[Rfam]
RNA: Small nucleolar RNA snoR27
Organism: Tetracentron sinense
RNA sequence: UCUGGAUCAGUGAUGUUAUAAUAAAACUGCGUUAUCUAUCUGUUAACUUCCUAAAAGGAAUUGAAGAUGAUCAUAGCAUGCUGAGAUCCAGU
Numbered sequence: 001u002c003u004g005g006a007u008c009a010g011u012g013a014u015g016u017u018a019u020a021a022u023a024a025a026a027c028u029g030c031g032u033u034a035u036c037u038a039u040c041u042g043u044u045a046a047c048u049u050c051c052u053a054a055a056a057g058g059a060a061u062u063g064a065a066g067a068u069g070a071u072c073a074u075a076g077c078a079u080g081c082u083g084a085g086a087u088c089c090a091g092u
Base pairs, nucleotide, nucleotide: 002091003090004089005088006087007086
Dot-bracket structure: .((((((..............................................................................)))))).